This 77-nucleotide RNA from Puma concolor belongs to the Rfam family "Small nucleolar RNA SNORD103/SNORD85". Rfam 15.1 lists 1,349 matches to the family in 595 species. The family's RNA type in Rfam is C/D-box small nucleolar RNA.

RNA sequence: ACUGGCGGGGAUGACAUACACUUGCCCUCACUGAGACCAUCGUCGUUGACGAGAGCACCUGAUUGUUCUGAGCCAGU
Numbered sequence: 001a002c003u004g005g006c007g008g009g010g011a012u013g014a015c016a017u018a019c020a021c022u023u024g025c026c027c028u029c030a031c032u033g034a035g036a037c038c039a040u041c042g043u044c045g046u047u048g049a050c051g052a053g054a055g056c057a058c059c060u061g062a063u064u065g066u067u068c069u070g071a072g073c074c075a076g077u
Base pairs, nucleotide, nucleotide: 001077002076003075004074005073006072
Dot-bracket structure: ((((((.................................................................))))))